RNA sequence: UUUAAGAGAGCUUUCUUCAGUCCACUCAUGGACGGGCGAAGGGUUUGGAUUAGCUGCCGACUCAUUCAUUCAAACACAGUAGAAAUUAAGGGAGCAGUAUGGCUGCUAUUGUGAAUGUGUGAAUGAUGCGGGAGAUAAAUUUCAUCCUUUUCUUCUCUGUGCUUGGACUGAAGGGAGCUCCCUUUAAU
Numbered sequence: 001u002u003u004a005a006g007a008g009a010g011c012u013u014u015c016u017u018c019a020g021u022c023c024a025c026u027c028a029u030g031g032a033c034g035g036g037c038g039a040a041g042g043g044u045u046u047g048g049a050u051u052a053g054c055u056g057c058c059g060a061c062u063c064a065u066u067c068a069u070u071c072a073a074a075c076a077c078a079g080u081a082g083a084a085a086u087u088a089a090g091g092g093a094g095c096a097g098u099a100u101g102g103c104u105g106c107u108a109u110u111g112u113g114a115a116u117g118u119g120u121g122a123a124u125g126a127u128g129c130g131g132g133a134g135a136u137a138a139a140u141u142u143c144a145u146c147c148u149u150u151u152c153u154u155c156u157c158u159g160u161g162c163u164u165g166g167a168c169u170g171a172a173g174g175g176a177g178c179u180c181c182c183u184u185u186a187a188u
Base pairs, nucleotide, nucleotide: 008180009179010178011177012176013175014174015173018170019169020168021167022166023165024164031157054134055133057131058130059129063125064124065123066122071117